[Rfam]
RNA sequence: CGGCUCGUCUCUUUGGUAUCCUAGCUGUAGGCGUGUCCUCGUACCCUAAAGUUAUGGUACCGAAGUUACGAGCCG
Numbered sequence: 001c002g003g004c005u006c007g008u009c010u011c012u013u014u015g016g017u018a019u020c021c022u023a024g025c026u027g028u029a030g031g032c033g034u035g036u037c038c039u040c041g042u043a044c045c046c047u048a049a050a051g052u053u054a055u056g057g058u059a060c061c062g063a064a065g066u067u068a069c070g071a072g073c074c075g
Base pairs, nucleotide, nucleotide: 001075002074003073004072005071007069008068011065012064013063014062015061016060017059018058019057020056022054023053024052025051026050028048029047030046031045
RNA: mir-9/mir-79 microRNA precursor family
Organism: Heliconius melpomene